RNA sequence: GGCUAUUCCGAGGGGGGCAUCGUACGAUGCUGAGAUGGCGGUGAGCCGGACCCUUGAACCUGAUCCGGGUCAUGCCGGCGUAGGAACGGAAAACGCGAAAAGC
Numbered sequence: 001g002g003c004u005a006u007u008c009c010g011a012g013g014g015g016g017g018c019a020u021c022g023u024a025c026g027a028u029g030c031u032g033a034g035a036u037g038g039c040g041g042u043g044a045g046c047c048g049g050a051c052c053c054u055u056g057a058a059c060c061u062g063a064u065c066c067g068g069g070u071c072a073u074g075c076c077g078g079c080g081u082a083g084g085a086a087c088g089g090a091a092a093a094c095g096c097g098a099a100a101a102g103c
Base pairs, nucleotide, nucleotide: 006091007090008089009088010087011054012053013052014051017030018029019028020027021026037047038046039045059084060083061082062081065078066077067076068075

The family of this 103-nucleotide RNA from Affinirhizobium straminoryzae is "TPP riboswitch aptamer (THI element)". Rfam links the family to the GO term thiamine pyrophosphate binding. The source organism's lineage runs through Bacteria, Pseudomonadota, Hyphomicrobiales, Rhizobiaceae and Affinirhizobium.